[Rfam]
RNA sequence: GGGCCGGCUUUAGCUCAGCAGUUACUUUGACAAUGCUUUCUAUGGUGGAAAACAACCACUCUGCGUGGUUCGAGAACCGCGGGCACUCUCCGGCCCUUUU
Numbered sequence: 001g002g003g004c005c006g007g008c009u010u011u012a013g014c015u016c017a018g019c020a021g022u023u024a025c026u027u028u029g030a031c032a033a034u035g036c037u038u039u040c041u042a043u044g045g046u047g048g049a050a051a052a053c054a055a056c057c058a059c060u061c062u063g064c065g066u067g068g069u070u071c072g073a074g075a076a077c078c079g080c081g082g083g084c085a086c087u088c089u090c091c092g093g094c095c096c097u098u099u100u
Stems, first nucleotide, its partner, number of pairs: 002095006013084004018080002021077001026074005
This 100-nucleotide sequence from Aotus nancymaae belongs to the Rfam family "Vault RNA". The family's consensus secondary structure is taken from published work. It is annotated as a non-coding RNA gene. A reference for the family is Stadler et al. (2009), "Evolution of Vault RNAs", Mol Biol Evol. This family of RNAs are found as part of the enigmatic vault ribonucleoprotein complex. The complex consists of a major vault protein (MVP), two minor vault proteins (VPARP and TEP1), and several small untranslated RNA molecules. It has been suggested that the vault complex is involved in drug resistance.